[Rfam]
RNA sequence: GGCUAUGUUUGUUCAUUAGCUCGUAUAAUAGUGGGAAUAUGGCUCACGAGUUUCUACCAAACGACCGUAAAUCGUUUGACUACGAGUGAAAGUGUGCCUAGG
Numbered sequence: 001g002g003c004u005a006u007g008u009u010u011g012u013u014c015a016u017u018a019g020c021u022c023g024u025a026u027a028a029u030a031g032u033g034g035g036a037a038u039a040u041g042g043c044u045c046a047c048g049a050g051u052u053u054c055u056a057c058c059a060a061a062c063g064a065c066c067g068u069a070a071a072u073c074g075u076u077u078g079a080c081u082a083c084g085a086g087u088g089a090a091a092g093u094g095u096g097c098c099u100a101g102g
Stems, first nucleotide, its partner, number of pairs: 019087007029049001031047005058078007

Shown here is a 102-nucleotide RNA from Alicyclobacillus sp. SO9, a member of the family "Purine riboswitch aptamer". Rfam links the family to the GO term purine nucleobase biosynthetic process. It scores 84 bits against the family's covariance model. Riboswitches are metabolite binding domains within certain messenger RNAs that serve as precision sensors for their corresponding targets.